Rfam assigns this 47-nucleotide sequence from Viola websteri to the family "Plastid-rpl16 group II-D1 intron". It is one of the family's seed sequences. The base pairs follow the family's consensus structure, which was predicted with LocARNA. A reference for the family is Richter et al. (2023), "Retrograde signaling in plants: A critical review focusing on the GUN pathway and beyond", Plant Commun. About the family: Plastid-rpl16 is a non-coding RNA (ncRNA) recognised in plastids.
[Rfam]
RNA sequence: AAGAGCCUCGAGUCAAUAAAGACUAAAAAAAUUGACUCAAGAACAAA
Numbered sequence: 001a002a003g004a005g006c007c008u009c010g011a012g013u014c015a016a017u018a019a020a021g022a023c024u025a026a027a028a029a030a031a032u033u034g035a036c037u038c039a040a041g042a043a044c045a046a047a
Stems, first nucleotide, its partner, number of pairs: 007041002010038008